[Rfam]
RNA sequence: GUCCGUCGCCCACAGAACGUUAAGUUCCCGGGCGGAGGACAGAUCGUUGGUGGAGUUUACGUGCUGCCUCGCAGGGGCCCAACAUUGGGUGUGCGAGCGGUACGCAAGACUUCCGAGCGGUCACAGCCCCGUGGUA
Numbered sequence: 001g002u003c004c005g006u007c008g009c010c011c012a013c014a015g016a017a018c019g020u021u022a023a024g025u026u027c028c029c030g031g032g033c034g035g036a037g038g039a040c041a042g043a044u045c046g047u048u049g050g051u052g053g054a055g056u057u058u059a060c061g062u063g064c065u066g067c068c069u070c071g072c073a074g075g076g077g078c079c080c081a082a083c084a085u086u087g088g089g090u091g092u093g094c095g096a097g098c099g100g101u102a103c104g105c106a107a108g109a110c111u112u113c114c115g116a117g118c119g120g121u122c123a124c125a126g127c128c129c130c131g132u133g134g135u136a
Stems, first nucleotide, its partner, number of pairs: 003038002006035006015027004042122006048115003052112002055110004062102002068097006077090004
RNA: Hepatitis C alternative reading frame stem-loop